[Rfam]
RNA sequence: UUGCCUCAAUGAGAACAGGAACGUAAACUAUGACCUAGGGGUUCCUGUGGGAUGCUUGGCAA
Numbered sequence: 001u002u003g004c005c006u007c008a009a010u011g012a013g014a015a016c017a018g019g020a021a022c023g024u025a026a027a028c029u030a031u032g033a034c035c036u037a038g039g040g041g042u043u044c045c046u047g048u049g050g051g052a053u054g055c056u057u058g059g060c061a062a
Base pairs, nucleotide, nucleotide: 001062002061003060004059015048016047017046018045019044020043021042022041028038029037030036
Shown here is a 62-nucleotide sequence from Phyllostomus discolor, a member of the family "Selenocysteine insertion sequence 1".
Rfam 15.1 lists 3,793 matches to the family in 721 species.
It is annotated as a cis-regulatory element.
Gene Ontology term of the family: selenocysteine incorporation.
Lineage of the source: Eukaryota > Vertebrata > Dipnotetrapodomorpha > Mammalia > Phyllostomus.
For this family Rfam cites "A survey of metazoan selenocysteine insertion sequences" (Lambert et al., Biochimie, 2002).